[Rfam]
RNA sequence: AGAGUUGGCGGCUAGGGUUCCGGUCUUUUUAAGAGACGCUGGUCCGAGAGUCGCCGCCCGAAGGGAGACAUCCUUCGGAGCCACGGCGGGACAAAAACCCGGGAGAC
Numbered sequence: 001a002g003a004g005u006u007g008g009c010g011g012c013u014a015g016g017g018u019u020c021c022g023g024u025c026u027u028u029u030u031a032a033g034a035g036a037c038g039c040u041g042g043u044c045c046g047a048g049a050g051u052c053g054c055c056g057c058c059c060g061a062a063g064g065g066a067g068a069c070a071u072c073c074u075u076c077g078g079a080g081c082c083a084c085g086g087c088g089g090g091a092c093a094a095a096a097a098c099c100c101g102g103g104a105g106a107c
Stems, first nucleotide, its partner, number of pairs: 007055006015045002020042002022039001023037006058078006082102001084105001088100003
Dot-bracket structure: ......((((((..((...(((((((((...)))))).).)).))....))))))..((((((.........))))))...(.[...(((.......))).)..]..

Guanidine-I riboswitch aptamer: a 107-nucleotide RNA sequence from Rhodoblastus acidophilus. The match comes from Rfam's covariance-model search (84 bits). The base pairs follow the family's consensus structure. From the family's description: This family represents a conserved RNA structure found upstream of the ykkC and yxkD genes in Bacillus subtilis and related genes in other bacteria.